[Rfam]
RNA sequence: GUCUCCCGUGCCUGCUGCGCUGAUAAUCAGCAACUCACUCCAGCUGGCUCAGUUCAGCAGGAACAGGAG
Numbered sequence: 001g002u003c004u005c006c007c008g009u010g011c012c013u014g015c016u017g018c019g020c021u022g023a024u025a026a027u028c029a030g031c032a033a034c035u036c037a038c039u040c041c042a043g044c045u046g047g048c049u050c051a052g053u054u055c056a057g058c059a060g061g062a063a064c065a066g067g068a069g
Stems, first nucleotide, its partner, number of pairs: 003069004008064002011061003015057003019053005027047005
Dot-bracket structure: ..((((.((.(((.(((.(((((...(((((...........))))).))))).))).))).)).))))
Shown here is a 69-nucleotide sequence from Scleropages formosus, a member of the family "mir-24 microRNA precursor family". This family represents the microRNA (miRNA) mir-24 family. miRNAs are transcribed as ~70nt precursors (modelled here) and subsequently processed by the Dicer enzyme to give a ~22nt product. In this case the mature sequence comes from the 3' arm of the precursor. The extents of the hairpin precursors are not generally known and are estimated based on hairpin prediction. The products are thought to have regulatory roles through complementarity to mRNA. The involvement of Dicer in miRNA processing suggests a relationship with the phenomenon of RNA interference. miRNAs are numbered based on the sequence of the mature RNA. miR-24 has been identified in human and mouse. The base pairs follow the family's consensus structure, which was predicted with RNAalifold. For this family Rfam cites "Identification of novel genes coding for small expressed RNAs" (Lagos-Quintana et al., Science, 2001). Taxonomically the source falls in Scleropages (Eukaryota, Deuterostomia, Vertebrata, Osteoglossidae). Its family is annotated with RISC complex and miRNA-mediated post-transcriptional gene silencing in the Gene Ontology. It scores 70 bits against the family's covariance model.